[Rfam]
RNA sequence: CGCGGGACGGCCCGCGCUUCAAGACCAACGGGGACGGCCCC
Numbered sequence: 001c002g003c004g005g006g007a008c009g010g011c012c013c014g015c016g017c018u019u020c021a022a023g024a025c026c027a028a029c030g031g032g033g034a035c036g037g038c039c040c041c
Stems, first nucleotide, its partner, number of pairs: 001016006030041004
The family of this 41-nucleotide RNA from Pseudaminobacter soli is "Guanidine-II riboswitch aptamer (mini-ykkC)". It scores 34 bits against the family's covariance model. Lineage of the source: Bacteria > Pseudomonadota > Alphaproteobacteria > Hyphomicrobiales > Pseudaminobacter. Gene Ontology term of the family: regulation of gene expression. From the family's description: Simpler in structure and has fewer highly conserved nucleotide positions than the ykkC-yxkD leader. Despite this each of its two stem-loop structures directly bind free guanidine. Therefore, mini-ykkC RNA motif represents a distinct class of guanidine-sensing RNAs. For this family Rfam cites "Identification of 22 candidate structured RNAs in bacteria using the CMfinder comparative genomics pipeline" (Weinberg et al., Nucleic Acids Res, 2007).